Shown here is a 174-nucleotide RNA sequence from Arthrobacter crusticola, a member of the family "c-di-AMP riboswitch aptamer (ydaO/yuaA leader)".
RNA sequence: AAGGACCGUUCGCAUAACUUUUCCGACAGGGGCGGGGGAACCGAGAGCGGGCUCUUUGUGAAGAGUCCUAGGGGUUAAGGCGCGGCACGGACAUCAUCUGGGGAGAUGGUCCGGUGCGCCCGGGUGUCCCAUCCGAACCCGACAGCUAACUCCGCAGGCAUCGGGAGAGGCAAC
Number, nucleotide and partner (000 for none) at each position: 001a000002a000003g000004g000005a000006c158007c157008g000009u000010u000011c031012g000013c029014a000015u000016a000017a000018c000019u000020u000021u000022u000023c000024c000025g000026a000027c000028a000029g013030g000031g011032g155033c154034g153035g152036g151037g150038g000039a000040a000041c000042c071043g000044a000045g000046a000047g000048c000049g000050g000051g000052c000053u000054c000055u000056u000057u000058g000059u000060g000061a000062a000063g000064a000065g000066u000067c000068c000069u000070a000071g042072g140073g139074g138075u000076u000077a000078a000079g000080g119081c118082g117083c116084g000085g000086c000087a000088c000089g000090g000091a000092c000093a000094u000095c000096a000097u000098c000099u000100g000101g000102g000103g000104a000105g000106a000107u000108g000109g000110u000111c000112c000113g000114g000115u000116g083117c082118g081119c080120c000121c000122g134123g133124g132125u131126g000127u000128c000129c000130c000131a125132u124133c123134c122135g000136a000137a000138c074139c073140c072141g000142a000143c000144a000145g000146c000147u000148a000149a000150c037151u036152c035153c034154g033155c032156a000157g007158g006159c000160a000161u000162c000163g000164g000165g000166a000167g000168a000169g000170g000171c000172a000173a000174c000
Annotation:
Pairs were carried over by alignment from the consensus structure.